[Rfam]
RNA: Plastid-ccsA-ndhD-2 3UTR RNA
RNA sequence: GCCUUUGUAAGAACCUUUUGAAUCAAAGUAGUGAUUCAAAAGGUUCUCGAAGGC
Numbered sequence: 001g002c003c004u005u006u007g008u009a010a011g012a013a014c015c016u017u018u019u020g021a022a023u024c025a026a027a028g029u030a031g032u033g034a035u036u037c038a039a040a041a042g043g044u045u046c047u048c049g050a051a052g053g054c
Stems, first nucleotide, its partner, number of pairs: 008049001010047016
Dot-bracket structure: .......(.((((((((((((((((......)))))))))))))))).).....